[Rfam]
RNA sequence: CGCUUUUUUGCCCAGGAGCUCGACCGCAAACUCAAAUCCUGAGAGAUUUUAUCGACUGGCACCGCAACACCUUCGGGGUUGAGCCGAUCUGCAAGGCAUUGCAGAUCGCCCCG
Numbered sequence: 001c002g003c004u005u006u007u008u009u010g011c012c013c014a015g016g017a018g019c020u021c022g023a024c025c026g027c028a029a030a031c032u033c034a035a036a037u038c039c040u041g042a043g044a045g046a047u048u049u050u051a052u053c054g055a056c057u058g059g060c061a062c063c064g065c066a067a068c069a070c071c072u073u074c075g076g077g078g079u080u081g082a083g084c085c086g087a088u089c090u091g092c093a094a095g096g097c098a099u100u101g102c103a104g105a106u107c108g109c110c111c112c113g
Stems, first nucleotide, its partner, number of pairs: 015025002074113005085108002088105007
ALIL pseudoknot: a 113-nucleotide RNA from Candidatus Nitrotoga fabula. It scores 86 bits against the family's covariance model. The family's RNA type in Rfam is cis-regulatory element. The organism belongs to Candidatus Nitrotoga, within Bacteria.